Small nucleolar RNA SNORA25: a 127-nucleotide RNA from Equus caballus.
The match comes from Rfam's covariance-model search (113 bits).
ACA25 is a member of the H/ACA class of snoRNA that guide the sites of modification of uridines to pseudouridines.
The family's consensus secondary structure was predicted with RNAfold.

RNA sequence: AGGUCGUUUCAAAAAGGACUUGUGGGACCAAAACCAGAAGCUCUUAAUACUGUGACCAAACAAUGAAAUUUUCCAUAGGAUGUAACAGUCAUUCAGCAGUGCUAUGUUUUCCUGAGGAGAUACAAGA
Numbered sequence: 001a002g003g004u005c006g007u008u009u010c011a012a013a014a015a016g017g018a019c020u021u022g023u024g025g026g027a028c029c030a031a032a033a034c035c036a037g038a039a040g041c042u043c044u045u046a047a048u049a050c051u052g053u054g055a056c057c058a059a060a061c062a063a064u065g066a067a068a069u070u071u072u073c074c075a076u077a078g079g080a081u082g083u084a085a086c087a088g089u090c091a092u093u094c095a096g097c098a099g100u101g102c103u104a105u106g107u108u109u110u111c112c113u114g115a116g117g118a119g120a121u122a123c124a125a126g127a
Stems, first nucleotide, its partner, number of pairs: 002057006014045004019040003023037001026035001070120005077113004085105001087103002090101004
It is annotated as an H/ACA-box small nucleolar RNA. Taxonomically the source falls in Equus (Eukaryota, Bilateria, Theria, Eutheria).